[Rfam]
RNA sequence: GGGCCGGAGGGUUCCUGGCAAGGUGAUUUGCGACUGCGUUUCUAAGAAAAAUCACAUUGCCAGGGAUUACCACUGGCCC
Numbered sequence: 001g002g003g004c005c006g007g008a009g010g011g012u013u014c015c016u017g018g019c020a021a022g023g024u025g026a027u028u029u030g031c032g033a034c035u036g037c038g039u040u041u042c043u044a045a046g047a048a049a050a051a052u053c054a055c056a057u058u059g060c061c062a063g064g065g066a067u068u069a070c071c072a073c074u075g076g077c078c079c
Stems, first nucleotide, its partner, number of pairs: 001079002004076003009071002011067011023055007
The record is a 79-nucleotide sequence from Petromyzon marinus, which matches "mir-23 microRNA precursor family" in Rfam. Taxonomically the source falls in Petromyzon (Eukaryota, Eumetazoa, Hyperoartia, Petromyzontidae). The family's consensus secondary structure was predicted with PFOLD. Rfam's curators put it in the seed alignment.